[Rfam]
RNA sequence: UCCCGAUGAAGAAGCAAUCCCAUAGAUAGGAAGUGCCGUAUGACACUUUACACAACAACGGACUGAACGACGA
Numbered sequence: 001u002c003c004c005g006a007u008g009a010a011g012a013a014g015c016a017a018u019c020c021c022a023u024a025g026a027u028a029g030g031a032a033g034u035g036c037c038g039u040a041u042g043a044c045a046c047u048u049u050a051c052a053c054a055a056c057a058a059c060g061g062a063c064u065g066a067a068c069g070a071c072g073a
Base pairs, nucleotide, nucleotide: 014059030049031048032047033046034045035044
The record is a 73-nucleotide RNA sequence, which matches "Small nucleolar RNA U49" in Rfam. The sequence is in the family's curated seed alignment. Its family is annotated with RNA processing and nucleolus in the Gene Ontology. The base pairs follow the family's consensus structure, which was predicted with CMfinder. Clan: SNORD49 clan. Rfam 15.1 lists 340 matches to the family in 152 species.